[Rfam]
RNA sequence: UUGUGUGUGAGGAGUAAGAUUAAUAAGGAAGCAGCCGGAGGGUCGAAACAUGGCAAGACUCCUUGCGGACUUCCUUAUU
Numbered sequence: 001u002u003g004u005g006u007g008u009g010a011g012g013a014g015u016a017a018g019a020u021u022a023a024u025a026a027g028g029a030a031g032c033a034g035c036c037g038g039a040g041g042g043u044c045g046a047a048a049c050a051u052g053g054c055a056a057g058a059c060u061c062c063u064u065g066c067g068g069a070c071u072u073c074c075u076u077a078u079u
Stems, first nucleotide, its partner, number of pairs: 027074005035067001039063003042059003
This 79-nucleotide RNA sequence from Synechocystis sp. PCC 6803 belongs to the Rfam family "Cyano-1 RNA". Pairs were carried over by alignment from the consensus structure, which is taken from published work. By type it is a small RNA. A search with the family's covariance model found it, with a score of 46 bits. Rfam 15.1 lists 283 matches to the family in 194 species. Lineage of the source: Bacteria > Bacillati > Cyanobacteriota > Cyanophyceae > Synechocystis.